Rfam assigns this 183-nucleotide RNA sequence from Blautia liquoris to the family "Group II catalytic intron D1-D4-3". Rfam 15.1 lists 4,274 matches to the family in 1,585 species. It scores 101 bits against the family's covariance model. The base pairs follow the family's consensus structure.
[Rfam]
RNA sequence: UUCAUCGCAAGGUGAAAUCUGAAGAAGCCGGAUGUUGGAAUAGAACCAACGGGCAAAUCUCUGGUCUGACGAACAGAAAUCACAUCAGGCUAUGCAAGAGGAUAUGGCAUGACAAGUUGAAGUCCAAUUACACGGAAUCAUGUAUGGUAUAUGUGGCAGAUGGAUGGAGAGAAAGAAUGUGUG
Numbered sequence: 001u002u003c004a005u006c007g008c009a010a011g012g013u014g015a016a017a018u019c020u021g022a023a024g025a026a027g028c029c030g031g032a033u034g035u036u037g038g039a040a041u042a043g044a045a046c047c048a049a050c051g052g053g054c055a056a057a058u059c060u061c062u063g064g065u066c067u068g069a070c071g072a073a074c075a076g077a078a079a080u081c082a083c084a085u086c087a088g089g090c091u092a093u094g095c096a097a098g099a100g101g102a103u104a105u106g107g108c109a110u111g112a113c114a115a116g117u118u119g120a121a122g123u124c125c126a127a128u129u130a131c132a133c134g135g136a137a138u139c140a141u142g143u144a145u146g147g148u149a150u151a152u153g154u155g156g157c158a159g160a161u162g163g164a165u166g167g168a169g170a171g172a173a174a175g176a177a178u179g180u181g182u183g
Base pairs, nucleotide, nucleotide: 001016002015003014004013005012006011046183049180050179054175058170059169060168061167062166063165064161065160066159067158068157080156081155082154083153084152089148090147091146093144094143095142096141098139099138100125101124102123103122106118